[Rfam]
RNA sequence: CAUGCUGUGACCCUCCAAAGGGAAGCACUUCCUGUUUGUUUUCUCUUCAACAAAGUGCCUCCCUUUAGAGUGUUACCGUUUGGGA
Numbered sequence: 001c002a003u004g005c006u007g008u009g010a011c012c013c014u015c016c017a018a019a020g021g022g023a024a025g026c027a028c029u030u031c032c033u034g035u036u037u038g039u040u041u042u043c044u045c046u047u048c049a050a051c052a053a054a055g056u057g058c059c060u061c062c063c064u065u066u067a068g069a070g071u072g073u074u075a076c077c078g079u080u081u082g083g084g085a
Stems, first nucleotide, its partner, number of pairs: 001082002004079002007076005013070003017066007025058006035050002